[Rfam]
RNA sequence: GUUGCAGGGUAGGAGGGAAGAGGUGUUACCUUAUCAGCUGCCUCCUCUCCCAUCCUCUCCUUCUGCAGAAGC
Numbered sequence: 001g002u003u004g005c006a007g008g009g010u011a012g013g014a015g016g017g018a019a020g021a022g023g024u025g026u027u028a029c030c031u032u033a034u035c036a037g038c039u040g041c042c043u044c045c046u047c048u049c050c051c052a053u054c055c056u057c058u059c060c061u062u063c064u065g066c067a068g069a070a071g072c
Base pairs, nucleotide, nucleotide: 002068003067004066005065006064007063008060009059011056012055013054014053015051016050019048020047021046022045023044025042027040028039030037031036
The family of this 72-nucleotide RNA from Phaethon lepturus is "mir-1759 microRNA precursor family". Gene Ontology terms of the family: RISC complex and miRNA-mediated post-transcriptional gene silencing.